[Rfam]
RNA: RpsF leader
RNA sequence: GUCAUUUUUCGACUUAUACUCCUUGCUUCCAUGGGCUGUGUUAACCAUGACAGGAAGCUGAAUAAUCCGUAAGGAGCAACUCUAUG
Numbered sequence: 001g002u003c004a005u006u007u008u009u010c011g012a013c014u015u016a017u018a019c020u021c022c023u024u025g026c027u028u029c030c031a032u033g034g035g036c037u038g039u040g041u042u043a044a045c046c047a048u049g050a051c052a053g054g055a056a057g058c059u060g061a062a063u064a065a066u067c068c069g070u071a072a073g074g075a076g077c078a079a080c081u082c083u084a085u086g
Stems, first nucleotide, its partner, number of pairs: 019076006025058006034046002
Dot-bracket structure: ..................((((((((((((...((.........))......))))))............))))))..........